Annotation: The family of this 114-nucleotide RNA from Catellatospora methionotrophica is "SAM riboswitch aptamer (S box leader)". A search with the family's covariance model found it, with a score of 77 bits.
[Rfam]
RNA sequence: ACCUCAUCCAGAGGAGCUGAGGGACACGGCCCGACGACGCUCCGGCAACCACCAUCGAUGGCAGGUGCCAACUCCGUCCGGCGGGCCAGAUCGGUGACGCCGGGAAGAUGAGAG
Numbered sequence: 001a002c003c004u005c006a007u008c009c010a011g012a013g014g015a016g017c018u019g020a021g022g023g024a025c026a027c028g029g030c031c032c033g034a035c036g037a038c039g040c041u042c043c044g045g046c047a048a049c050c051a052c053c054a055u056c057g058a059u060g061g062c063a064g065g066u067g068c069c070a071a072c073u074c075c076g077u078c079c080g081g082c083g084g085g086c087c088a089g090a091u092c093g094g095u096g097a098c099g100c101c102g103g104g105a106a107g108a109u110g111a112g113a114g
Stems, first nucleotide, its partner, number of pairs: 003112006013043005021032003026077004044069004049065002052061003073106001078103006